[Rfam]
RNA sequence: UUGCCUUAAACUAAUGAGUAAGGAAAACAAAGCGGGCGGUGAGAACUGGCCGCAGCACCCACAUUCAUUCAUUUGAUUAGUGGUGCAUUAAUUUGUGGAGGGGAAAUAGGCUGGCCCUGCGCUGACGCUGCUUACUUUGCAGAACUCGCUUGUGCGGGCCUCCCC
Numbered sequence: 001u002u003g004c005c006u007u008a009a010a011c012u013a014a015u016g017a018g019u020a021a022g023g024a025a026a027a028c029a030a031a032g033c034g035g036g037c038g039g040u041g042a043g044a045a046c047u048g049g050c051c052g053c054a055g056c057a058c059c060c061a062c063a064u065u066c067a068u069u070c071a072u073u074u075g076a077u078u079a080g081u082g083g084u085g086c087a088u089u090a091a092u093u094u095g096u097g098g099a100g101g102g103g104a105a106a107u108a109g110g111c112u113g114g115c116c117c118u119g120c121g122c123u124g125a126c127g128c129u130g131c132u133u134a135c136u137u138u139g140c141a142g143a144a145c146u147c148g149c150u151u152g153u154g155c156g157g158g159c160c161u162c163c164c165c
Stems, first nucleotide, its partner, number of pairs: 004023005032053004037048003055086005101165003108161005114155001116152001119149003128142004

The record is a 165-nucleotide RNA from Striga hermonthica, which matches "U12 minor spliceosomal RNA" in Rfam. A reference for the family is Tarn and Steitz (1997), "Pre-mRNA splicing: the discovery of a new spliceosome doubles the challenge", Trends Biochem Sci. The family's RNA type in Rfam is spliceosomal small nuclear RNA. NCBI's taxonomy places the organism under Eukaryota, Embryophyta, Magnoliopsida, Orobanchaceae, Striga.